RNA: Burkholderia RNA 7 (anti-hemB)
Organism: Polaromonas vacuolata
RNA sequence: UCCCGCUUUUCCUCCCUGAGCGGGGCCUUUGCGUGUGACAGCAAAAAGGCUUACAAGCCCGGCUGACUUCGCGUUAGCCGGGCAUUUUUUU
Numbered sequence: 001u002c003c004c005g006c007u008u009u010u011c012c013u014c015c016c017u018g019a020g021c022g023g024g025g026c027c028u029u030u031g032c033g034u035g036u037g038a039c040a041g042c043a044a045a046a047a048g049g050c051u052u053a054c055a056a057g058c059c060c061g062g063c064u065g066a067c068u069u070c071g072c073g074u075u076a077g078c079c080g081g082g083c084a085u086u087u088u089u090u091u
Stems, first nucleotide, its partner, number of pairs: 002024006025050004029043001057083011